[Rfam]
This 69-nucleotide RNA from Aquarana catesbeiana belongs to the Rfam family "mir-8/mir-141/mir-200 microRNA precursor family". The family's consensus secondary structure was predicted with RNAalifold. The source organism's lineage runs through Eukaryota, Chordata, Sarcopterygii, Ranidae and Aquarana. The family is grouped with related families in Rfam's "mir-8 microRNA precursor clan".
RNA sequence: GUGGACAUCUUACUAGACAGUGCUGGAUUUAUUUUACAUUUUCUAACACUGUCUGGUAACGAUGUUUAA
Numbered sequence: 001g002u003g004g005a006c007a008u009c010u011u012a013c014u015a016g017a018c019a020g021u022g023c024u025g026g027a028u029u030u031a032u033u034u035u036a037c038a039u040u041u042u043c044u045a046a047c048a049c050u051g052u053c054u055g056g057u058a059a060c061g062a063u064g065u066u067u068a069a
Stems, first nucleotide, its partner, number of pairs: 002068008010059013024045004